[Rfam]
RNA sequence: GUUGCUCACUCUCCCUCGAUGGCUUCCGGCAAUAUGGUCGACACUGCCCCUGAAAUGCUCGAAGCCAUUGAAGAGAGUGAUCAAAAC
Number, nucleotide and partner (000 for none) at each position: 001g000002u000003u000004g000005c000006u080007c079008a078009c077010u076011c075012u074013c073014c000015c000016u000017c070018g069019a068020u067021g066022g065023c064024u063025u062026c061027c000028g000029g000030c000031a000032a000033u000034a000035u000036g000037g000038u000039c000040g000041a000042c000043a000044c000045u000046g000047c000048c000049c000050c000051u000052g000053a000054a000055a000056u000057g000058c000059u000060c000061g026062a025063a024064g023065c022066c021067a020068u019069u018070g017071a000072a000073g013074a012075g011076a010077g009078u008079g007080a006081u000082c000083a000084a000085a000086a000087c000
RNA: MIR473 microRNA precursor family
Organism: Hibiscus syriacus